About this RNA: Rfam assigns this 144-nucleotide RNA from Sutcliffiella cohnii to the family "SAM riboswitch aptamer (S box leader)". Lineage of the source: Bacteria > Bacillati > Bacillota > Caryophanales > Sutcliffiella. The match comes from Rfam's covariance-model search (67 bits). Rfam links the family to the GO term regulation of gene expression. Rfam's curators write: The SAM riboswitch is found upstream of a number of genes which code for proteins involved in methionine or cysteine biosynthesis in Gram-positive bacteria. The SAM riboswitch acts at the level of transcription termination control. The predicted structure consists of a complex stem-loop region followed by a single stem loop terminator region. An alternative and mutually exclusive form involves bases in the 3' segment of helix 1 with those in the 5' region of helix 5 to form a structure termed the anti-terminator form. This entry represents the conserved core of the complex structure involving helices 1-4.
RNA sequence: CUCUUAUCCCGAGAUGGUGGAGGGACAGGCCCGAUGAAACCCAGCAACCUGCUCAUUUAACUGCAAUACAUACUGGGCAUAUUUAAUGAAGUGAGAAAAGGUGCUAACCUGAAGCAAAGUAUUAUAUGCUUUGCGUGAUAAGAG
Numbered sequence: 001c002u003c004u005u006a007u008c009c010c011g012a013g014a015u016g017g018u019g020g021a022g023g024g025a026c027a028g029g030c031c032c033g034a035u036g037a038a039a040c041c042c043a044g045c046a047a048c049c050u051g052c053u054c055a056u057u058u059a060a061c062u063g064c065a066a067u068a069c070a071u072a073c074u075g076g077g078c079a080u081a082u083u084u085a086a087u088g089a090a091g092u093g094a095g096a097a098a099a100g101g102u103g104c105u106a107a108c109c110u111g112a113a114g115c116a117a118a119g120u121a122u123u124a125u126a127u128g129c130u131u132u133g134c135g136u137g138a139u140a141a142g143a144g
Stems, first nucleotide, its partner, number of pairs: 001144008013042001016041003022032003026114001029110001043105004048101002050097001052095007115133006